[Rfam]
RNA sequence: AAAGGCGCAUGCGACUGGCGUAAACAUGGAGAACCAUGGGGGAGCAUGCUGCUUAUCAGCCGUACGCCUGGGCGAAGUAU
Numbered sequence: 001a002a003a004g005g006c007g008c009a010u011g012c013g014a015c016u017g018g019c020g021u022a023a024a025c026a027u028g029g030a031g032a033a034c035c036a037u038g039g040g041g042g043a044g045c046a047u048g049c050u051g052c053u054u055a056u057c058a059g060c061c062g063u064a065c066g067c068c069u070g071g072g073c074g075a076a077g078u079a080u
Stems, first nucleotide, its partner, number of pairs: 003053002007049006015041002017068005026037004059073003
RNA: ZMP/ZTP riboswitch aptamer (pfl RNA motif)
Organism: Paenibacillus methanolicus